[Rfam]
RNA sequence: UCAAGAGCAAUAACGAAAAAUGUUUGUCAUAAACCGUUUUUCAUUAUUGCUCCUGACC
Numbered sequence: 001u002c003a004a005g006a007g008c009a010a011u012a013a014c015g016a017a018a019a020a021u022g023u024u025u026g027u028c029a030u031a032a033a034c035c036g037u038u039u040u041u042c043a044u045u046a047u048u049g050c051u052c053c054u055g056a057c058c
Base pairs, nucleotide, nucleotide: 001056002055003054005052006051007050008049009048010047011046012045013044015042016041017040018039019038020037021036022035023033024032025031026030
Record summary
A member of the RNA family "mir-335 microRNA precursor family" from Tupaia belangeri, 58 nucleotides long. A reference for the family is Ahn et al. (2010), "MicroRNA transcriptome in the newborn mouse ovaries determined by massive parallel sequencing", Mol Hum Reprod. The family's consensus secondary structure was predicted with RNAalifold. Its family is annotated with RISC complex and miRNA-mediated post-transcriptional gene silencing in the Gene Ontology. Rfam 15.1 lists 139 matches to the family in 134 species. The sequence is in the family's curated seed alignment. The source organism's lineage runs through Eukaryota, Sarcopterygii, Tupaiidae, Tupaia and Tupaia belangeri.